[Rfam]
RNA sequence: UUGCCCAUUCCAGACUGUGUGUGUCUGGCAUGGCCAACACGGGGGGCAGAAAAAAAUGCCUCUCUAAAACCCGGGGAAGAGACGGACUCUGCUCCGGAUCCUGUCGGGAGGCACACCU
Number, nucleotide and partner (000 for none) at each position: 001u000002u048003g047004c046005c045006c044007a000008u043009u042010c041011c000012a000013g000014a000015c000016u036017g035018u000019g000020u000021g000022u000023g000024u000025c000026u000027g000028g000029c000030a000031u000032g000033g000034c000035c017036a016037a000038c000039a000040c000041g010042g009043g008044g006045g005046g004047c003048a002049g000050a000051a000052a000053a000054a000055a000056a000057u000058g112059c000060c110061u109062c108063u107064c106065u000066a000067a000068a000069a000070c000071c097072c096073g095074g094075g093076g092077a000078a000079g089080a088081g087082a000083c000084g000085g000086a000087c081088u080089c079090u000091g000092c076093u075094c074095c073096g072097g071098a000099u000100c000101c000102u000103g000104u000105c000106g064107g063108g062109a061110g060111g000112c058113a000114c000115a000116c000117c000118u000
A member of the RNA family "Small nucleolar RNA SNORA26" from Albula goreensis, 118 nucleotides long.
The family is grouped with related families in Rfam's "SNORA27 clan".
Rfam links the family to the GO terms nucleolus and RNA processing.
NCBI's taxonomy places the organism under Eukaryota, Deuterostomia, Actinopterygii, Elopocephalai, Albula.
About the family: The snoRNA HBI-6 belong to the H/ACA family of snoRNAs, guiding the pseudouridylation of position U4522 if the 28S rRNA. HBI-6 is the human orthologue of mouse MBI-6 snoRNA.
The match comes from Rfam's covariance-model search (60 bits).
It is annotated as an H/ACA-box small nucleolar RNA.